[Rfam]
RNA: MIR474 microRNA precursor family
RNA sequence: UCUAAAAAAUGCUGGGUUAAAAAGGGACAAACCCAGCUAUUGGGUUGUUUUGGGUUGCUUGGUUUGUCCCUUUUUAACCCAGCAUUUUUUAGAGU
Dot-bracket structure: ((.((((((.((((((((((((((((((((((((((...)))))).....((((...))))..)))))))))))))))))))).)))))).))..